[Rfam]
RNA sequence: CUCUGGAAAGCAGGCGCCCGCAACAUCCCGUAAAAGGGAAAAAACGGAGCGCCUCACCGAAGAUGUAACCUGCUUCUCGCGAAGGUUCGUGGGGCGCCGGGAAUCUUUCAGGUUCCAAGACAGAG
Numbered sequence: 001c002u003c004u005g006g007a008a009a010g011c012a013g014g015c016g017c018c019c020g021c022a023a024c025a026u027c028c029c030g031u032a033a034a035a036g037g038g039a040a041a042a043a044a045c046g047g048a049g050c051g052c053c054u055c056a057c058c059g060a061a062g063a064u065g066u067a068a069c070c071u072g073c074u075u076c077u078c079g080c081g082a083a084g085g086u087u088c089g090u091g092g093g094g095c096g097c098c099g100g101g102a103a104u105c106u107u108u109c110a111g112g113u114u115c116c117a118a119g120a121c122a123g124a125g
Base pairs, nucleotide, nucleotide: 001125002124003123004122005121012054013053014052015051016050017049056113057112058111059109060108063107065105069100070099
A member of the RNA family "Glycine riboswitch aptamer" from Varunaivibrio sulfuroxidans, 125 nucleotides long. The source organism's lineage runs through Bacteria, Pseudomonadati, Pseudomonadota, Magnetovibrionaceae and Varunaivibrio.